[Rfam]
RNA sequence: CGUUCAGAGAUUGUCUCUGUCGUUACCCACAUCAGUGGAUACGGGAAAGCAAUCGUAGA
Numbered sequence: 001c002g003u004u005c006a007g008a009g010a011u012u013g014u015c016u017c018u019g020u021c022g023u024u025a026c027c028c029a030c031a032u033c034a035g036u037g038g039a040u041a042c043g044g045g046a047a048a049g050c051a052a053u054c055g056u057a058g059a
Stems, first nucleotide, its partner, number of pairs: 009054006020044004027038003

The family of this 59-nucleotide RNA is "Transposase-1 RNA".
The base pairs follow the family's consensus structure, which is taken from published work.
The family's RNA type in Rfam is small RNA.
Rfam's curators put it in the seed alignment.